[Rfam]
RNA sequence: UUGCGCAAGUAAUGUUUUGUUGAGCAAUUUUCGCAAUCCUCUGUCGCAGCGCUUGCCUAUGAUGGUCAACAGAAUCACUGCCCGGACACAUGUCCACAGCGGCGGCCCCAAUCAGGGGCGCUGCGGCCAGCAACCCCACCGGGUUGUGCUCGGCCCCCGGGCUGCACACUGUUCACAAGACAGCGUGAGGUGAGCCGGCGUCACAAGCGCCGAGCACGGACGAAAAUCUCGAAGGGUGGCCUCAGGGUCACCCU
Number, nucleotide and partner (000 for none) at each position: 001u012002u011003g010004c009005g000006c000007a000008a000009g004010u003011a002012a001013u000014g000015u000016u000017u000018u000019g000020u000021u000022g000023a000024g000025c000026a000027a000028u000029u000030u000031u000032c000033g000034c000035a000036a000037u000038c000039c000040u000041c000042u000043g056044u000045c055046g054047c000048a000049g000050c000051g000052c000053u000054u046055g045056c043057c000058u000059a000060u000061g000062a000063u000064g000065g000066u000067c000068a000069a000070c000071a000072g000073a000074a000075u193076c192077a191078c190079u189080g162081c161082c160083c159084g095085g094086a093087c092088a000089c000090a000091u000092g087093u086094c085095c084096a000097c000098a000099g124100c123101g122102g121103c120104g000105g000106c117107c116108c115109c000110a000111a000112u000113c000114a000115g108116g107117g106118g000119c000120g103121c102122u101123g100124c099125g155126g154127c153128c152129a150130g000131c000132a145133a144134c143135c142136c141137c000138a000139c000140c000141g136142g135143g134144u133145u132146g000147u000148g000149c000150u129151c000152g128153g127154c126155c125156c000157c000158c000159g083160g082161g081162c080163u000164g000165c187166a186167c185168a000169c183170u182171g181172u180173u179174c000175a000176c000177a000178a000179g173180a172181c171182a170183g169184c000185g167186u166187g165188a000189g079190g078191u077192g076193a075194g215195c214196c212197g211198g210199c209200g208201u207202c000203a000204c000205a000206a000207g201208c200209g199210c198211c197212g196213a000214g195215c194216a000217c000218g000219g000220a000221c000222g000223a000224a000225a000226a000227u000228c000229u000230c000231g000232a000233a254234g253235g252236g251237u000238g249239g248240c247241c246242u000243c000244a000245g000246g241247g240248u239249c238250a000251c236252c235253c234254u233
Rfam assigns this 254-nucleotide sequence from Pseudomonas sp. 1239 to the family "Pseudomonas sRNA P24". Rfam classes the family as a non-coding RNA gene. For this family Rfam cites "Identification of 17 Pseudomonas aeruginosa sRNAs and prediction of sRNA-encoding genes in 10 diverse pathogens using the bioinformatic tool sRNAPredict2" (Livny et al., Nucleic Acids Res, 2006). From the family's description: This small RNA (sRNA) was computationally identified in the genome of the opportunistic pathogen Pseudomonas aeruginosa and its expression verified by Northern blot analysis.